[Rfam]
RNA: TPP riboswitch aptamer (THI element)
Organism: Mycobacterium shinjukuense
RNA sequence: ACCAAUUCACGCGGGAGCGCGCGCCGAGCGUGCUGAGAGGACGGCUGGGGCCGUCGACCGUCUGAACCUGACCGGGUAAUGCCGGCGUAGGGAGAUGACCAUGACCGUGA
Numbered sequence: 001a002c003c004a005a006u007u008c009a010c011g012c013g014g015g016a017g018c019g020c021g022c023g024c025c026g027a028g029c030g031u032g033c034u035g036a037g038a039g040g041a042c043g044g045c046u047g048g049g050g051c052c053g054u055c056g057a058c059c060g061u062c063u064g065a066a067c068c069u070g071a072c073c074g075g076g077u078a079a080u081g082c083c084g085g086c087g088u089a090g091g092g093a094g095a096u097g098a099c100c101a102u103g104a105c106c107g108u109g110a
Stems, first nucleotide, its partner, number of pairs: 007098003011061004019033005040055005067091004072085004